[Rfam]
The record is a 73-nucleotide RNA sequence from Gemmata obscuriglobus, which matches "tRNA" in Rfam.

Nucleotides: 073
Base pairs, nucleotide, nucleotide: 001072002071003070004069005068006067010025011024012023013022028042029041030040031039049065050064051063052062053061
Number, partner (000 for none) and nucleotide at each position: 001072g002071g003070u004069c005068c006067a007000g008000a009000a010025g011024c012023u013022c014000c015000g016000u017000u018000g019000g020000u021000a022013g023012a024011g025010c026000a027000g028042c029041c030040g031039c032000c033000u034000g035000u036000c037000g038000a039031g040030c041029g042028g043000a044000a045000g046000g047000g048000u049065g050064c051063g052062g053061g054000u055000u056000c057000g058000a059000c060000u061053c062052c063051c064050g065049u066000g067006u068005g069004g070003a071002c072001c073000g